[Rfam]
RNA sequence: ACCUUAUCAAGAGUCGGGGUAGGAAACUGGUCCUGUGAUCCCGCGGCAACCAUUGCUAUUUGAAAAACAAUUAGCGAAAAGGUGCUCAUUCCAGCAAGCGGAUAUAGCUUGGAAGAUAAGGG
Dot-bracket structure: .(((((((....(.((((...(((..[[[[)))......)))))((((.((.((((((.............))))))...))))))...(]]]](((((.......)))))..)))))))).

SAM riboswitch aptamer (S box leader): a 122-nucleotide RNA sequence from Lederbergia citrea.